The record is a 99-nucleotide RNA sequence from Trypanosoma brucei, which matches "Small nucleolar RNA TBR4" in Rfam. The source organism's lineage runs through Eukaryota, Kinetoplastea, Trypanosomatida, Trypanosoma and Trypanosoma brucei brucei. The family's consensus secondary structure was predicted with RNAfold. By type it is a C/D-box small nucleolar RNA. About the family: TBR4 was one of seventeen snoRNAs identified in Trypanosoma brucei. Together with TBR12, TBR6 and TBR2 it is a part of snoRNA gene cluster that is tandemly repeated. These 4 snoRNA genes are transcribed as a polycistronic RNA transcript.

[Rfam]
RNA sequence: CGGUGAUUAGCAGUGCGUCUUCCACCUAACGACCCUUGAUGAUUAUGAUACGAUGCCUGGUCAACAGAACUAUACUACACCAAAUUUAGUAAAUGAGAC
Numbered sequence: 001c002g003g004u005g006a007u008u009a010g011c012a013g014u015g016c017g018u019c020u021u022c023c024a025c026c027u028a029a030c031g032a033c034c035c036u037u038g039a040u041g042a043u044u045a046u047g048a049u050a051c052g053a054u055g056c057c058u059g060g061u062c063a064a065c066a067g068a069a070c071u072a073u074a075c076u077a078c079a080c081c082a083a084a085u086u087u088a089g090u091a092a093a094u095g096a097g098a099c
Base pairs, nucleotide, nucleotide: 002034003033004032007029008028009027010026013025014024015023017022036067037066038065040063041062042061043060044059045058047056073091074090075089076088077087
Dot-bracket structure: .(((..((((..(((.(....))))))))..))).(((.((((((.(........).)))))).))).....(((((.........)))))........